Shown here is a 135-nucleotide sequence from Monodelphis domestica, a member of the family "Small nucleolar RNA SNORA63". Rfam classes the family as an H/ACA-box small nucleolar RNA. It scores 117 bits against the family's covariance model. Gene Ontology terms of the family: nucleolus and RNA processing. The literature on the family includes a 1997 paper in Proc Natl Acad Sci U S A by Mishra and Eliceiri, "Three small nucleolar RNAs that are involved in ribosomal RNA precursor processing".
RNA sequence: AUGCAGGAACUAGUUACAAUAUAGCAGUGAAGUGCUUUAUUGUCGUUCCCCCUGCUUAAAUCAAAAUGUUUUUUACUAUCCCUGUCUGUUUUGCUAUAUAUGCCAUAGCAGCCAGGGACGCUUGAUCUCAAACAU
Number, nucleotide and partner (000 for none) at each position: 001a000002u000003g055004c054005a053006g052007g051008a000009a000010c000011u000012a000013g000014u000015u000016a043017c042018a041019a040020u039021a038022u000023a036024g035025c034026a000027g000028u000029g000030a000031a000032g000033u000034g025035c024036u023037u000038u021039a020040u019041u018042g017043u016044c000045g000046u000047u000048c000049c000050c000051c007052c006053u005054g004055c003056u000057u000058a000059a000060a000061u000062c000063a000064a000065a000066a000067u000068g000069u000070u000071u000072u000073u000074u000075a000076c000077u000078a000079u000080c000081c116082c115083u114084g113085u000086c111087u110088g109089u108090u000091u000092u000093g000094c000095u000096a000097u000098a000099u000100a000101u000102g000103c000104c000105a000106u000107a000108g089109c088110a087111g086112c000113c084114a083115g082116g081117g000118a000119c000120g000121c000122u000123u000124g000125a000126u000127c000128u000129c000130a000131a000132a000133c000134a000135u000

Rfam describes the family as follows. E3 belongs to the H/ACA class of snoRNAs and is involved in the processing of eukaryotic pre-rRNA and has regions of complementarity to 18S rRNA. E3 is encoded in introns in the gene for protein synthesis initiation factor 4AII.